[Rfam]
Lysine riboswitch aptamer: a 169-nucleotide sequence from Faecalibacillus faecis. The source organism's lineage runs through Bacteria, Bacillati, Bacillota, Erysipelotrichales and Faecalibacillus. It scores 104 bits against the family's covariance model. Rfam links the family to the GO term lysine biosynthetic process.
RNA sequence: AUAAAUGGUAGAGGUGCAUGAAUCAAGAGUACUCUUUAAUAAUGUUUGGUGACAGUUAAAGAGGAAAGGGAAACGUGCCGAAGAGAAUAAAAGCACCAACUUUUAUUUAUCUGGGAAAUUAUAGAAUAUGUAAUUUCUUGUCACUUUUUAGUGGAGAGCUAUCUUGUAU
Numbered sequence: 001a002u003a004a005a006u007g008g009u010a011g012a013g014g015u016g017c018a019u020g021a022a023u024c025a026a027g028a029g030u031a032c033u034c035u036u037u038a039a040u041a042a043u044g045u046u047u048g049g050u051g052a053c054a055g056u057u058a059a060a061g062a063g064g065a066a067a068g069g070g071a072a073a074c075g076u077g078c079c080g081a082a083g084a085g086a087a088u089a090a091a092a093g094c095a096c097c098a099a100c101u102u103u104u105a106u107u108u109a110u111c112u113g114g115g116a117a118a119u120u121a122u123a124g125a126a127u128a129u130g131u132a133a134u135u136u137c138u139u140g141u142c143a144c145u146u147u148u149u150a151g152u153g154g155a156g157a158g159c160u161a162u163c164u165u166g167u168a169u
Stems, first nucleotide, its partner, number of pairs: 007163005016078005023071002032063008082112003086107008113139011141154005